Overview: tRNA: an 82-nucleotide sequence from Aspergillus nomiae.
[Rfam]
RNA sequence: GCCUUUAUAGCUCAGUGGUAGAGCGCUUGACUUGUAGUUUGAUGAUAUCAAGAGGUCCGUGGUUCAAUCCCGCGUGGAGGCA
Number, nucleotide and partner (000 for none) at each position: 001g081002c080003c079004u078005u077006u076007a075008u000009a000010g024011c023012u022013c021014a000015g000016u000017g000018g000019u000020a000021g013022a012023g011024c010025g000026c052027u051028u050029g049030a048031c000032u000033u000034g000035u000036a000037g000038u000039u000040u000041g000042a000043u000044g000045a000046u000047a000048u030049c029050a028051a027052g026053a000054g000055g000056u000057c000058c074059g073060u072061g071062g070063u000064u000065c000066a000067a000068u000069c000070c062071c061072g060073c059074g058075u007076g006077g005078a004079g003080g002081c001082a000
About the family: Transfer RNA (tRNA) molecules are approximately 80 nucleotides in length.